[Rfam]
RNA sequence: UCCACCUGAUCGCCGAAUUUCCUCGGUGGGAAGCGGGGGAACCAGGUAAGUGGGGUUAAUCUCCGCGCCAGUUUUUCCUAUACGGGGAAAAAGGGGCGCGGGGUAGGGCCAUCCUUGGUCCGCACCCGGCAGCUAACCUCGCAGGCGUGGAAGGAGGUGGAU
Number, nucleotide and partner (000 for none) at each position: 001u000002c000003c000004a000005c000006c000007u000008g000009a000010u000011c147012g146013c145014c144015g000016a000017a000018u032019u031020u030021c000022c000023u000024c000025g000026g000027u000028g000029g000030g020031a019032a018033g142034c141035g140036g139037g138038g137039g000040a000041a000042c000043c052044a051045g000046g000047u000048a000049a000050g000051u044052g043053g127054g126055g125056u000057u000058a000059a000060u000061c103062u102063c101064c100065g099066c098067g097068c096069c095070a000071g000072u000073u000074u000075u000076u000077c000078c000079u000080a000081u000082a000083c000084g000085g000086g000087g000088a000089a000090a000091a000092a000093g000094g000095g069096g068097c067098g066099c065100g064101g063102g062103g061104u000105a000106g121107g120108g119109c118110c000111a000112u000113c000114c000115u000116u000117g000118g109119u108120c107121c106122g000123c000124a000125c055126c054127c053128g000129g000130c000131a000132g000133c000134u000135a000136a000137c038138c037139u036140c035141g034142c033143a000144g014145g013146c012147g011148u000149g000150g000151a000152a000153g000154g000155a000156g000157g000158u000159g000160g000161a000162u000
Rfam assigns this 162-nucleotide RNA from Neomoorella thermoacetica to the family "c-di-AMP riboswitch aptamer (ydaO/yuaA leader)". Its family is annotated with regulation of gene expression and cyclic-di-AMP binding in the Gene Ontology. Lineage of the source: Bacteria > Bacillati > Bacillota > Neomoorellales > Neomoorella.